[Rfam]
RNA: RNase MRP
Organism: Armillaria solidipes
RNA sequence: UUGCCGUCCGAAGAAUCGUCGUCGCAGCUUCCGUACAGAGAGCCCUGGCUUUCAUACUUCGCUGUGGGGAAAGUCCCCGGAGAUGCAGAGUAUGUCCUCGUUCAACUAACGGAAAGCGACCGUCUCCAAGCACGAUGGUACUGGACGAGGACGGCGAGAAUGGCUUUGCUCGGCCCUUUGGCUUGUGGCUCCCUCUCGACCGCUCUGCUGUCUCGCUGACGGCAGGCUAUCCGGCCAAGGUGCUCAUGCGCGAAGAUACGAGCGUGUGUAUCGCUCGGUGGCCUGCUGAAGGUGCAGGCGCUUUGUUGCUCAUAGACACAGUUAUACGAUUGUAGCCCUUCUCGGGGUCUUCAACACAAUGGGGCUCACUCUCGUUCGGCA
Number, nucleotide and partner (000 for none) at each position: 001u000002u381003g380004c379005c378006g377007u000008c000009c374010g373011a372012a000013g000014a331015a330016u329017c328018g327019u326020c000021g000022u067023c066024g065025c064026a063027g062028c061029u000030u000031c000032c000033g000034u000035a000036c000037a000038g053039a052040g051041a050042g049043c048044c000045c000046u000047g000048g043049c042050u041051u040052u039053c038054a000055u000056a000057c000058u000059u000060c000061g028062c027063u026064g025065u024066g023067g022068g000069g000070a000071a000072a366073g365074u000075c364076c363077c362078c361079g000080g000081a000082g000083a000084u000085g095086c094087a093088g000089a000090g000091u000092a000093u087094g086095u085096c000097c000098u000099c000100g000101u000102u000103c000104a000105a000106c000107u000108a000109a000110c000111g000112g000113a000114a000115a000116g000117c000118g000119a000120c000121c000122g000123u000124c000125u000126c000127c000128a000129a000130g000131c000132a000133c000134g000135a000136u000137g000138g000139u000140a000141c000142u000143g000144g000145a000146c000147g000148a000149g000150g000151a000152c000153g000154g000155c000156g000157a000158g000159a000160a000161u000162g000163g000164c000165u000166u000167u000168g000169c000170u000171c000172g000173g000174c000175c000176c000177u000178u000179u000180g000181g000182c000183u000184u000185g000186u000187g000188g000189c000190u000191c000192c000193c000194u000195c000196u000197c000198g000199a000200c000201c000202g000203c000204u000205c000206u000207g223208c222209u221210g220211u219212c218213u000214c000215g000216c000217u000218g212219a211220c210221g209222g208223c207224a000225g302226g301227c300228u000229a000230u000231c298232c297233g000234g295235c294236c000237a000238a000239g000240g000241u290242g000243c288244u000245c000246a000247u000248g283249c000250g000251c280252g000253a000254a000255g000256a000257u000258a000259c000260g000261a000262g000263c000264g000265u000266g276267u000268g274269u273270a000271u000272c000273g269274c268275u000276c266277g000278g000279u000280g251281g000282c000283c248284u000285g000286c000287u000288g243289a000290a241291g000292g000293u000294g235295c234296a000297g232298g231299c000300g227301c226302u225303u000304u000305g000306u000307u000308g000309c000310u000311c000312a000313u000314a000315g000316a000317c000318a000319c000320a000321g000322u000323u000324a000325u000326a019327c018328g017329a016330u015331u014332g000333u000334a350335g349336c000337c347338c346339u000340u000341c000342u000343c000344g000345g000346g338347g337348u000349c335350u334351u000352c000353a000354a000355c000356a000357c000358a000359a000360u000361g078362g077363g076364g075365c073366u072367c000368a000369c000370u000371c000372u011373c010374g009375u000376u000377c006378g005379g004380c003381a002